[Rfam]
RNA sequence: GACGUGCUCCGGGGUCGGUGUAAUUCCGAGCCGGCGGUGACAGUCCGCGACCCGCUCCAGUUCGCUGGAACGGUUGAUCUGGUGAAACUCCAGAACCGACGGUGAAAGUCCGGAUGGGAGGCAGCACGCG
Numbered sequence: 001g002a003c004g005u006g007c008u009c010c011g012g013g014g015u016c017g018g019u020g021u022a023a024u025u026c027c028g029a030g031c032c033g034g035c036g037g038u039g040a041c042a043g044u045c046c047g048c049g050a051c052c053c054g055c056u057c058c059a060g061u062u063c064g065c066u067g068g069a070a071c072g073g074u075u076g077a078u079c080u081g082g083u084g085a086a087a088c089u090c091c092a093g094a095a096c097c098g099a100c101g102g103u104g105a106a107a108g109u110c111c112g113g114a115u116g117g118g119a120g121g122c123a124g125c126a127c128g129c130g
Base pairs, nucleotide, nucleotide: 003128004127005126006125007124008123009121010120016028017027018026030109031108032098033097034048035047036046037045043096044095052073053072078094079093080092081091082090100112101111102110
FMN riboswitch aptamer (RFN element): a 130-nucleotide RNA from Microlunatus parietis.